[Rfam]
Notes:
This 162-nucleotide RNA from Veillonella montpellierensis belongs to the Rfam family "glmS glucosamine-6-phosphate activated ribozyme aptamer". By type it is a riboswitch. A reference for the family is Winkler et al. (2004), "Control of gene expression by a natural metabolite-responsive ribozyme", Nature.
RNA sequence: UAUAUACGAAUAGCGCAAGUGCCACGCGUAGACAGACGUAGGGGCCGACGAGGUAGAAAGUUGUCGAAUAAUCAGCGGAUGCUUUCUCGGUGAUUUCACAUCGUUAUACAAGUAGUAAAAACUAUUAGGAAUAAUAGAACAAAGGACUUGUAACUGAAAACU
Numbered sequence: 001u002a003u004a005u006a007c008g009a010a011u012a013g014c015g016c017a018a019g020u021g022c023c024a025c026g027c028g029u030a031g032a033c034a035g036a037c038g039u040a041g042g043g044g045c046c047g048a049c050g051a052g053g054u055a056g057a058a059a060g061u062u063g064u065c066g067a068a069u070a071a072u073c074a075g076c077g078g079a080u081g082c083u084u085u086c087u088c089g090g091u092g093a094u095u096u097c098a099c100a101u102c103g104u105u106a107u108a109c110a111a112g113u114a115g116u117a118a119a120a121a122c123u124a125u126u127a128g129g130a131a132u133a134a135u136a137g138a139a140c141a142a143a144g145g146a147c148u149u150g151u152a153a154c155u156g157a158a159a160a161c162u
Base pairs, nucleotide, nucleotide: 021045022044023043025041055087056086057085058084059083064075066073067072088103089102090101091100092099107152108151109150110149111148112147113146122137123136124135125134126133127132